[Rfam]
RNA sequence: CCGUGCUAGCCGGGGAGAUAGCGGUUCCCUGUACCUGCAAUCCGCUAUAGCAGGGGUGAUGUUCUGUUUCGGGUCUAUGGCUUGCAAAGCUGCCCUUUGUAAGUGGCGUUGACGCUUUGGUCUUGCGCAAUGGAAACUCAUGAACCGUGUCAGGAGGGGAACCUAGCAGCACUAAGUGAGAUCUUCCGUGUGCCGCGAGGUUGCCGGGGCUGAGUUAACUGCAAAGGUAACGUUUGCAGCGAUGGAUUCAACGCAGAAUGCACGG
Numbered sequence: 001c002c003g004u005g006c007u008a009g010c011c012g013g014g015g016a017g018a019u020a021g022c023g024g025u026u027c028c029c030u031g032u033a034c035c036u037g038c039a040a041u042c043c044g045c046u047a048u049a050g051c052a053g054g055g056g057u058g059a060u061g062u063u064c065u066g067u068u069u070c071g072g073g074u075c076u077a078u079g080g081c082u083u084g085c086a087a088a089g090c091u092g093c094c095c096u097u098u099g100u101a102a103g104u105g106g107c108g109u110u111g112a113c114g115c116u117u118u119g120g121u122c123u124u125g126c127g128c129a130a131u132g133g134a135a136a137c138u139c140a141u142g143a144a145c146c147g148u149g150u151c152a153g154g155a156g157g158g159g160a161a162c163c164u165a166g167c168a169g170c171a172c173u174a175a176g177u178g179a180g181a182u183c184u185u186c187c188g189u190g191u192g193c194c195g196c197g198a199g200g201u202u203g204c205c206g207g208g209g210c211u212g213a214g215u216u217a218a219c220u221g222c223a224a225a226g227g228u229a230a231c232g233u234u235u236g237c238a239g240c241g242a243u244g245g246a247u248u249c250a251a252c253g254c255a256g257a258a259u260g261c262a263c264g265g
Stems, first nucleotide, its partner, number of pairs: 001265006009057003012030006019023001034054005062258006071249005077243002080240002083238005091229002095226006103219002105216003114210008122199006128190002131188005137180005147172004155164003